[Rfam]
RNA: SAH (S-adenosyl-L-homocysteine) riboswitch aptamer
Organism: Saezia sanguinis
RNA sequence: UGUUCCGAGGAGCGUUGCGACCUUGCGCUGAAGUGUGUAUUUCAGUUGAUGGGGCCAGGCUCGGAGAUCUCAUACGUUUAAAUGACAAACGGCGCUCACCCACC
Number, nucleotide and partner (000 for none) at each position: 001u000002g000003u066004u065005c064006c063007g062008a061009g000010g000011a000012g000013c000014g000015u000016u000017g000018c000019g000020a000021c054022c053023u052024u051025g050026c000027g000028c000029u000030g000031a000032a000033g000034u000035g000036u000037g000038u000039a000040u000041u000042u000043c000044a000045g000046u000047u000048g000049a000050u025051g024052g023053g022054g021055c000056c000057a000058g000059g000060c000061u008062c007063g006064g005065a004066g003067a000068u000069c000070u000071c000072a000073u000074a000075c000076g000077u000078u000079u000080a000081a000082a000083u000084g000085a000086c000087a000088a000089a000090c000091g000092g000093c000094g000095c000096u000097c000098a000099c000100c000101c000102a000103c000104c000